Rfam assigns this 58-nucleotide RNA from Orthohepacivirus hominis to the family "Hepatitis C virus stem-loop SL8001 RNA". The family's consensus secondary structure was predicted with RNAfold. Lineage of the source: Viruses > Riboviria > Orthornavirae > Hepaciviridae > Orthohepacivirus. By type it is a cis-regulatory element. Rfam describes the family as follows. Even though Hepatitis C virus (HCV) SL8001 is not required for overall replication, conformational changes in this motif tune the initial rate of replication.
RNA sequence: CUAACCAGUAAGGCCGUACGCCACAUCAACUCCGUGUGGCAAGACCUUCUGGAAGACA
Numbered sequence: 001c002u003a004a005c006c007a008g009u010a011a012g013g014c015c016g017u018a019c020g021c022c023a024c025a026u027c028a029a030c031u032c033c034g035u036g037u038g039g040c041a042a043g044a045c046c047u048u049c050u051g052g053a054a055g056a057c058a
Stems, first nucleotide, its partner, number of pairs: 005052004010047001012045001014043001021039006